[Rfam]
RNA sequence: GGAUGUGAGGGCGAUCUGGCUGCGACAUCUGUCACCCCAUUGAUCGCCAGGGUUGAUUUGGCUGAUCUGGCUGGCUAGGCGGGUUUCCCCUUCCUCCCUCACCGCUCCAUGUGCGUCCCUCCCGAAGCUGCGCGCUCGGUCGAAGAGGACGACCUUCCCCGCUAGAGGAGGACCGUUCUUCGGUCAAGGGUAUACGAGUAGCUGCGCUCCCCUGCUAGAACCUCCAAACAAGCUCUCAAGGUCCAAAAGUGCCUUUGGAUCAUUCGGCGUUUUUAUAUUAGGGCUUUGUGCCUCUCCGGGGGCUGUGGUUUCCU
Numbered sequence: 001g002g003a004u005g006u007g008a009g010g011g012c013g014a015u016c017u018g019g020c021u022g023c024g025a026c027a028u029c030u031g032u033c034a035c036c037c038c039a040u041u042g043a044u045c046g047c048c049a050g051g052g053u054u055g056a057u058u059u060g061g062c063u064g065a066u067c068u069g070g071c072u073g074g075c076u077a078g079g080c081g082g083g084u085u086u087c088c089c090c091u092u093c094c095u096c097c098c099u100c101a102c103c104g105c106u107c108c109a110u111g112u113g114c115g116u117c118c119c120u121c122c123c124g125a126a127g128c129u130g131c132g133c134g135c136u137c138g139g140u141c142g143a144a145g146a147g148g149a150c151g152a153c154c155u156u157c158c159c160c161g162c163u164a165g166a167g168g169a170g171g172a173c174c175g176u177u178c179u180u181c182g183g184u185c186a187a188g189g190g191u192a193u194a195c196g197a198g199u200a201g202c203u204g205c206g207c208u209c210c211c212c213u214g215c216u217a218g219a220a221c222c223u224c225c226a227a228a229c230a231a232g233c234u235c236u237c238a239a240g241g242u243c244c245a246a247a248a249g250u251g252c253c254u255u256u257g258g259a260u261c262a263u264u265c266g267g268c269g270u271u272u273u274u275a276u277a278u279u280a281g282g283g284c285u286u287u288g289u290g291c292c293u294c295u296c297c298g299g300g301g302g303c304u305g306u307g308g309u310u311u312c313c314u
Base pairs, nucleotide, nucleotide: 001108002107003106005102006101007100008099009098010097011096013093014092018090019089024087025086027084028083029082030081031080032079033078035074036073037070038069039068042067043066044065045064046062047061048060116171117170118168119167120166121165122139123138124137125136127135128134141161142160147158148157149156201268202267203266210258211257214254222249223248281314282313283312286308287307288306289305291301292300294299
This 314-nucleotide RNA sequence from Prolemur simus belongs to the Rfam family "7SK RNA". The family is grouped with related families in Rfam's "7SK clan". Pairs were carried over by alignment from the consensus structure, which is taken from published work. The family's RNA type in Rfam is non-coding RNA gene. The family has 45 seed sequences and 49,373 matches in Rfam 15.1. Rfam's curators write: 7SK was discovered as an abundant small nuclear RNA in the mid-70s but a possible function has only recently been suggested. Two independent studies have found that 7SK RNA binds the CDK9/cyclin T complex (known as elongation factor P-TEFb). NCBI's taxonomy places the organism under Eukaryota, Craniata, Gnathostomata, Eutheria, Prolemur.